[Rfam]
RNA sequence: AGAAAAAAGCAGAGGCAUUCCGCUUCUCGCCUUGGAGAUCAGAGUUUCCGGGCAGAAAUUAAAGAAAUUUUUACUAAGAUUGAACUUUAAUGCGGGCACUCUGAAUCUCAGAGUGCCCGUUUUCUGCAUUUUCU
Numbered sequence: 001a002g003a004a005a006a007a008a009g010c011a012g013a014g015g016c017a018u019u020c021c022g023c024u025u026c027u028c029g030c031c032u033u034g035g036a037g038a039u040c041a042g043a044g045u046u047u048c049c050g051g052g053c054a055g056a057a058a059u060u061a062a063a064g065a066a067a068u069u070u071u072u073a074c075u076a077a078g079a080u081u082g083a084a085c086u087u088u089a090a091u092g093c094g095g096g097c098a099c100u101c102u103g104a105a106u107c108u109c110a111g112a113g114u115g116c117c118c119g120u121u122u123u124c125u126g127c128a129u130u131u132u133c134u
Stems, first nucleotide, its partner, number of pairs: 011027006029053003035048005092120012